[Rfam]
RNA sequence: GCCGGGCGUGGUGGCGCGUGCCUGUAGUCCCAGCUACUCGGGAGGCUGAGGCUGGAGGAUCGCUUGAGCCCAGGAGUUCUGGGCUGUAGUGCGUUAUGCCGAUCGGGUGUCCGCACUAAGUUCGGCAUCAAUAUGGUGACCUCCCGGGAGUGGGGGACCACCAGGUUGCCUAAGGAGGGGUGAACCGGCCCAGGUCGGAAACGGAGCAGGUCAAAACUCCCGUGCUGAUCAAAAGAGGAUGGAAUCUGAGAGACCCAAGACAGAGGAAGGAUGAGUAGAACAUGAGUCUGCUGUCACUU
Numbered sequence: 001g002c003c004g005g006g007c008g009u010g011g012u013g014g015c016g017c018g019u020g021c022c023u024g025u026a027g028u029c030c031c032a033g034c035u036a037c038u039c040g041g042g043a044g045g046c047u048g049a050g051g052c053u054g055g056a057g058g059a060u061c062g063c064u065u066g067a068g069c070c071c072a073g074g075a076g077u078u079c080u081g082g083g084c085u086g087u088a089g090u091g092c093g094u095u096a097u098g099c100c101g102a103u104c105g106g107g108u109g110u111c112c113g114c115a116c117u118a119a120g121u122u123c124g125g126c127a128u129c130a131a132u133a134u135g136g137u138g139a140c141c142u143c144c145c146g147g148g149a150g151u152g153g154g155g156g157a158c159c160a161c162c163a164g165g166u167u168g169c170c171u172a173a174g175g176a177g178g179g180g181u182g183a184a185c186c187g188g189c190c191c192a193g194g195u196c197g198g199a200a201a202c203g204g205a206g207c208a209g210g211u212c213a214a215a216a217c218u219c220c221c222g223u224g225c226u227g228a229u230c231a232a233a234a235g236a237g238g239a240u241g242g243a244a245u246c247u248g249a250g251a252g253a254c255c256c257a258a259g260a261c262a263g264a265g266g267a268a269g270g271a272u273g274a275g276u277a278g279a280a281c282a283u284g285a286g287u288c289u290g291c292u293g294u295c296a297c298u299u
Base pairs, nucleotide, nucleotide: 001046002045003044004023005022006021007020008019009018010017028043029042030041048297050295051294052293054291056289057288059287060286064282068276069275071273072272079269080268084263085262086261087260090257091256093255095253097252099250103249104248105247106246107245108244110242111238112237116235117234120230122228123227124226125225126224127223128222129168130167131166132165134163135162136161137160138159141156142155143154144153145152146151169175170174177220178219179218180217181216187212188211189210190209195204196203197202
The record is a 299-nucleotide sequence from Galemys pyrenaicus, which matches "Metazoan signal recognition particle RNA" in Rfam. Rfam's curators write: The signal recognition particle (SRP) is a universally conserved ribonucleoprotein. It is involved in the co-translational targeting of proteins to membranes. The eukaryotic SRP consists of a 300-nucleotide 7S RNA and six proteins: SRPs 72, 68, 54, 19, 14, and 9. Archaeal SRP consists of a 7S RNA and homologues of the eukaryotic SRP19 and SRP54 proteins. Eukaryotic and archaeal 7S RNAs have very similar secondary structures, as represented by this family. Eight helical elements fold into the Alu and S domains, separated by a long linker region. The Alu domain is thought to mediate the peptide chain elongation retardation function of the SRP. The universally conserved helix which interacts with the SRP54 M domain mediates signal sequence recognition. In eukaryotes and archaea, the SRP19-helix 6 complex is thought to be involved in SRP assembly and stabilises helix 8 for SRP54 binding. The Signal Recognition Particle Database (SRPDB) provides compilations of SRP components, with phylogenetic data and structural illustrations. Many sequences below the threshold for this family are clearly closely related, but are most likely to be SRP RNA derived pseudogenes. The human genome in particular is known to contain a large amount of SRP RNA related sequence, including Alu repeats. While the threshold of this family is set high so as to minimise the number of hits to such regions, it is likely that some remain.